DUF805 RNA: a 68-nucleotide RNA sequence from Reichenbachiella sp. 5M10.
The match comes from Rfam's covariance-model search (78 bits).
RNA sequence: AAACAAUGGAGACCAGCGACCAUUCCAAAAACGGGGCGUCAUCGAAAAGCCUUAUGAGUAGAAAACUA
Numbered sequence: 001a002a003a004c005a006a007u008g009g010a011g012a013c014c015a016g017c018g019a020c021c022a023u024u025c026c027a028a029a030a031a032c033g034g035g036g037c038g039u040c041a042u043c044g045a046a047a048a049g050c051c052u053u054a055u056g057a058g059u060a061g062a063a064a065a066c067u068a
Stems, first nucleotide, its partner, number of pairs: 006023004035051003042062002